[Rfam]
RNA sequence: GGGGAUGAUCGGUUUCGACAUCGGUCGCCGUCCCAGGGGAAGCGGGCCGAGGAUGCAGAGUUAUCUCGUUAACGCCCUCUGCAAACCAAUAGGUGCCGAUUCCAAGCGCACCGACUUCGCCCUCGCCGCCUGAGCGAGCCCGAAGUCUGUCAGCCUGAGCUAGUUCUCGACUCAGUGUCUGGCAUCAGCUAGAGAACUUGCUGCAGCGUCAUGUCGAGGGGCGCUGCGGGACUCUUACUCGACUGGGCCUGUCACGGAAUGUGUGCGUACCAGCCGUGGGGCCGAGAAAAUCCUCAUACGCACUGCGCCCGGAGAAGCCCUGGAUCGCCGUCGAUGGACGGGGGUUCAAUUCCCCCCAUCUCCACCA
Number, nucleotide and partner (000 for none) at each position: 001g363002g362003g361004g360005a359006u358007g357008a000009u000010c000011g000012g000013u000014u000015u000016c000017g000018a000019c336020a335021u334022c333023g332024g331025u330026c000027g328028c327029c000030g326031u000032c000033c323034c322035a321036g320037g319038g318039g000040a000041a000042g000043c311044g310045g309046g308047c307048c068049g067050a066051g065052g064053a000054u083055g082056c081057a080058g079059a078060g077061u000062u000063a000064u052065c051066u050067c049068g048069u000070u000071a000072a000073c000074g000075c000076c000077c060078u059079c058080u057081g056082c055083a054084a000085a000086c000087c000088a000089a000090u000091a000092g000093g000094u000095g000096c000097c000098g000099a000100u000101u000102c000103c000104a000105a000106g000107c000108g000109c000110a000111c000112c000113g000114a000115c000116u000117u000118c000119g000120c000121c145122c000123u143124c142125g141126c000127c000128g139129c138130c000131u000132g000133a000134g000135c000136g000137a000138g129139c128140c000141c125142g124143a123144a000145g121146u000147c000148u184149g183150u182151c181152a180153g179154c000155c175156u174157g173158a172159g171160c000161u000162a000163g197164u196165u195166c194167u193168c192169g000170a000171c159172u158173c157174a156175g155176u000177g000178u000179c153180u152181g151182g150183c149184a148185u000186c000187a000188g000189c000190u000191a000192g168193a167194g166195a165196a164197c163198u000199u000200g000201c229202u228203g227204c226205a225206g224207c223208g222209u221210c000211a000212u000213g243214u242215c241216g240217a239218g000219g000220g000221g209222c208223g207224c206225u205226g204227c203228g202229g201230g000231a000232c000233u000234c000235u000236u000237a000238c000239u217240c216241g215242a214243c213244u000245g000246g283247g282248c281249c280250u279251g000252u000253c278254a277255c276256g000257g000258a000259a000260u000261g000262u000263g303264u302265g301266c300267g299268u298269a297270c000271c000272a000273g000274c000275c000276g255277u254278g253279g250280g249281g248282c247283c246284g000285a000286g000287a000288a000289a000290a000291u000292c000293c000294u000295c000296a000297u269298a268299c267300g266301c265302a264303c263304u000305g000306c000307g047308c046309c045310c044311g043312g000313a000314g000315a000316a000317g000318c038319c037320c036321u035322g034323g033324a000325u000326c030327g028328c027329c000330g025331u024332c023333g022334a021335u020336g019337g000338a000339c000340g356341g355342g354343g353344g352345u000346u000347c000348a000349a000350u000351u000352c344353c343354c342355c341356c340357c007358a006359u005360c004361u003362c002363c001364a000365c000366c000367a000

This 367-nucleotide RNA from Dermacoccus sp. 147Ba belongs to the Rfam family "transfer-messenger RNA". Lineage of the source: Bacteria > Actinomycetota > Actinomycetes > Micrococcales > Dermacoccus. Rfam classes the family as a non-coding RNA gene. The literature on the family includes a 1996 paper in RNA by Williams and Bartel, "Phylogenetic analysis of tmRNA secondary structure".